Group II catalytic intron D1-D4-3: a 177-nucleotide sequence from Erysipelatoclostridium sp. An173. Taxonomically the source falls in Thomasclavelia (Bacteria, Bacillati, Erysipelotrichia, Erysipelotrichales). The family has 406 seed sequences and 4,274 matches in Rfam 15.1.

RNA sequence: UCAGUCGUGAGGUGGAAUCUGAAAGAAGAUGGAGGCAAAACUCCGGUCCAAGGAACACGAAUCAUAUCAGGCAUAUAACGGGGAUGAGUGUGCAAAACAACACGAAGUCAUAAGAGAUUGCGGAAUAGGACUGUUAUAUGUAAAUAUGGCGGAUAUAUGGAGUGAAAGAGAUAUGAC
Numbered sequence: 001u002c003a004g005u006c007g008u009g010a011g012g013u014g015g016a017a018u019c020u021g022a023a024a025g026a027a028g029a030u031g032g033a034g035g036c037a038a039a040a041c042u043c044c045g046g047u048c049c050a051a052g053g054a055a056c057a058c059g060a061a062u063c064a065u066a067u068c069a070g071g072c073a074u075a076u077a078a079c080g081g082g083g084a085u086g087a088g089u090g091u092g093c094a095a096a097a098c099a100a101c102a103c104g105a106a107g108u109c110a111u112a113a114g115a116g117a118u119u120g121c122g123g124a125a126u127a128g129g130a131c132u133g134u135u136a137u138a139u140g141u142a143a144a145u146a147u148g149g150c151g152g153a154u155a156u157a158u159g160g161a162g163u164g165a166a167a168g169a170g171a172u173a174u175g176a177c
Stems, first nucleotide, its partner, number of pairs: 001016002004013003028177001030175002036168001040163006046154004062149005071141003075137007083109003088103004